[Rfam]
RNA sequence: AACAGUUUGACAACACUCCGGUGCCAGGUUAUGACUAUCAAUCGAUUUUCAUUUUAUUACUACCGUACUUGGUUCCUAUUUAAGUUUCAAACAAGAUCUAAUUGACAUUUACUCACCAAGAUAACUCUUAUUCCAUAGUUAUAUUGGUCCAUCUUUCACUUUGUCAGAUAU
Numbered sequence: 001a002a003c004a005g006u007u008u009g010a011c012a013a014c015a016c017u018c019c020g021g022u023g024c025c026a027g028g029u030u031a032u033g034a035c036u037a038u039c040a041a042u043c044g045a046u047u048u049u050c051a052u053u054u055u056a057u058u059a060c061u062a063c064c065g066u067a068c069u070u071g072g073u074u075c076c077u078a079u080u081u082a083a084g085u086u087u088c089a090a091a092c093a094a095g096a097u098c099u100a101a102u103u104g105a106c107a108u109u110u111a112c113u114c115a116c117c118a119a120g121a122u123a124a125c126u127c128u129u130a131u132u133c134c135a136u137a138g139u140u141a142u143a144u145u146g147g148u149c150c151a152u153c154u155u156u157c158a159c160u161u162u163g164u165c166a167g168a169u170a171u
Base pairs, nucleotide, nucleotide: 007090008089009088020076021075023073024072026070027069028068029067031052032051033050034049103166104165105164106163116147117146118145119144121142122141123140124139125138126137

A member of the RNA family "Small nucleolar RNA snR80" from Naumovozyma dairenensis, 171 nucleotides long. The family has 6 seed sequences and 447 matches in Rfam 15.1. Taxonomically the source falls in Naumovozyma dairenensis (Eukaryota, Ascomycota, Saccharomycetales, Saccharomycetaceae). By type it is an H/ACA-box small nucleolar RNA. A reference for the family is Schattner et al. (2004), "Genome-wide searching for pseudouridylation guide snoRNAs: analysis of the Saccharomyces cerevisiae genome", Nucleic Acids Res.